[Rfam]
RNA sequence: AAUUAAACAAAUAUAUGCUUUCAUAUAAGUUUGGGGAUAUGGCCUAGAUGUUUCUACGAAGUUACCGUAAAUAACUUCUCUAUGACGGCAAGAGAGCAAGCU
Number, nucleotide and partner (000 for none) at each position: 001a000002a000003u000004u000005a000006a000007a000008c000009a000010a000011a000012u000013a000014u000015a000016u000017g000018c088019u087020u000021u085022c084023a083024u082025a081026u000027a000028a000029g049030u048031u047032u046033g045034g044035g043036g000037a000038u000039a000040u000041g000042g000043c035044c034045u033046a032047g031048a030049u029050g000051u000052u000053u000054c000055u000056a000057c000058g078059a077060a076061g075062u074063u073064a072065c000066c000067g000068u000069a000070a000071a000072u064073a063074a062075c061076u060077u059078c058079u000080c000081u025082a024083u023084g022085a021086c000087g019088g018089c000090a000091a000092g000093a000094g000095a000096g000097c000098a000099a000100g000101c000102u000
A member of the RNA family "Purine riboswitch aptamer" from Lysinibacillus sp. BF-4, 102 nucleotides long. Rfam describes the family as follows. Riboswitches are metabolite binding domains within certain messenger RNAs that serve as precision sensors for their corresponding targets.